[Rfam]
RNA sequence: GCUGAGCUUUGUAACGGAAGUUUGUGACCCGAGAGGGGGCAUUAAGAUGAUGGUACAUGGGUCUGGUUCCUUGAGUCGGAUUUCAUGUGGCUUUACAAUGGCCUGCCCGAUCCAAGCCAGGAGUUAAGCAAUGGUAUCUCAGUGAAAACUGAGUGUGUCGUGGCUCUUAGAGUGAAGGGUACUGCGUGAGACUGGUUUCACAGAGCAGCGAAGACCUUCCUCUCUUGGCAGUGGAAGGAUUACAGGCUUCAUCCACUAAGAUCCAACAACUUGUCUCACUGAGCCGACUUAACUGAACCGUCAUCUUU
Numbered sequence: 001g002c003u004g005a006g007c008u009u010u011g012u013a014a015c016g017g018a019a020g021u022u023u024g025u026g027a028c029c030c031g032a033g034a035g036g037g038g039g040c041a042u043u044a045a046g047a048u049g050a051u052g053g054u055a056c057a058u059g060g061g062u063c064u065g066g067u068u069c070c071u072u073g074a075g076u077c078g079g080a081u082u083u084c085a086u087g088u089g090g091c092u093u094u095a096c097a098a099u100g101g102c103c104u105g106c107c108c109g110a111u112c113c114a115a116g117c118c119a120g121g122a123g124u125u126a127a128g129c130a131a132u133g134g135u136a137u138c139u140c141a142g143u144g145a146a147a148a149c150u151g152a153g154u155g156u157g158u159c160g161u162g163g164c165u166c167u168u169a170g171a172g173u174g175a176a177g178g179g180u181a182c183u184g185c186g187u188g189a190g191a192c193u194g195g196u197u198u199c200a201c202a203g204a205g206c207a208g209c210g211a212a213g214a215c216c217u218u219c220c221u222c223u224c225u226u227g228g229c230a231g232u233g234g235a236a237g238g239a240u241u242a243c244a245g246g247c248u249u250c251a252u253c254c255a256c257u258a259a260g261a262u263c264c265a266a267c268a269a270c271u272u273g274u275c276u277c278a279c280u281g282a283g284c285c286g287a288c289u290u291a292a293c294u295g296a297a298c299c300g301u302c303a304u305c306u307u308u
Stems, first nucleotide, its partner, number of pairs: 001040003004023007028037003044307010056295002058292001060290001061288003065284001068282002072278004077273001078264006085257001087256004093251001100248006107238002111235004116229008127165003131161007138153006167172001174219005183212001185210003192203003
The family of this 308-nucleotide RNA from Hibiscus syriacus is "Plant signal recognition particle RNA". Rfam classes the family as a non-coding RNA gene. The organism belongs to Hibiscus, within Eukaryota. The base pairs follow the family's consensus structure, which is taken from published work. It scores 214 bits against the family's covariance model.